Background
The record is a 92-nucleotide RNA sequence from Lathyrus oleraceus, which matches "Plastid-psbA-1 3UTR RNA" in Rfam. Taxonomically the source falls in Lathyrus (Eukaryota, Spermatophyta, Mesangiospermae, eudicotyledons). The family's consensus secondary structure was predicted with LocARNA. Plastid psbA-1 is a non-coding RNA (ncRNA) present in plastids.
RNA sequence: UUAAGGCUCCAUCUAUAAAUGGAUAAUAUUUUUGUUUAAAGAUACGAAUUUUUGUAAAGGAGUAAUAUCAACAUUGUGGAUAUUACUCCCUU
Numbered sequence: 001u002u003a004a005g006g007c008u009c010c011a012u013c014u015a016u017a018a019a020u021g022g023a024u025a026a027u028a029u030u031u032u033u034g035u036u037u038a039a040a041g042a043u044a045c046g047a048a049u050u051u052u053u054g055u056a057a058a059g060g061a062g063u064a065a066u067a068u069c070a071a072c073a074u075u076g077u078g079g080a081u082a083u084u085a086c087u088c089c090c091u092u
Stems, first nucleotide, its partner, number of pairs: 008023005056092002059089010071077002